Shown here is a 69-nucleotide sequence from Salibacterium salarium, a member of the family "Bacillaceae-1 RNA". Taxonomically the source falls in Salibacterium (Bacteria, Bacillati, Bacilli, Bacillaceae). The match comes from Rfam's covariance-model search (51 bits).

[Rfam]
RNA sequence: UCUAAAGGACCCUUCUACUAAAACCGCGCACAUCCUGUGCGCAACGUAGAAGCCACCACCUCCUGUGGA
Numbered sequence: 001u002c003u004a005a006a007g008g009a010c011c012c013u014u015c016u017a018c019u020a021a022a023a024c025c026g027c028g029c030a031c032a033u034c035c036u037g038u039g040c041g042c043a044a045c046g047u048a049g050a051a052g053c054c055a056c057c058a059c060c061u062c063c064u065g066u067g068g069a
Stems, first nucleotide, its partner, number of pairs: 012052007027041005056068004
The base pairs follow the family's consensus structure, which is taken from published work.